Source information: mir-449 microRNA precursor family: an 88-nucleotide RNA from Scyliorhinus torazame. Pairs were carried over by alignment from the consensus structure, which was predicted with RNAalifold. It scores 64 bits against the family's covariance model. Its Rfam clan is "mir-34 clan". The source organism's lineage runs through Eukaryota, Metazoa, Chondrichthyes, Scyliorhinidae and Scyliorhinus. Its family is annotated with miRNA-mediated post-transcriptional gene silencing and RISC complex in the Gene Ontology.

[Rfam]
RNA sequence: UGUGCAUGGUGGUAAGGCAGUGUAACGUUAGCUGGUUGUAUCUAUCUAUAACACCGGUUAACUUACUGCUGCCCUCCUACCGUGCAUG
Number, nucleotide and partner (000 for none) at each position: 001u088002g087003u086004g085005c084006a083007u082008g081009g080010u079011g078012g077013u000014a000015a000016g073017g072018c071019a070020g069021u068022g066023u065024a064025a000026c000027g062028u061029u060030a059031g058032c057033u056034g055035g054036u053037u000038g000039u000040a000041u050042c000043u048044a000045u000046c000047u000048a043049u000050a041051a000052c000053a036054c035055c034056g033057g032058u031059u030060a029061a028062c027063u000064u024065a023066c022067u000068g021069c020070u019071g018072c017073c016074c000075u000076c000077c012078u011079a010080c009081c008082g007083u006084g005085c004086a003087u002088g001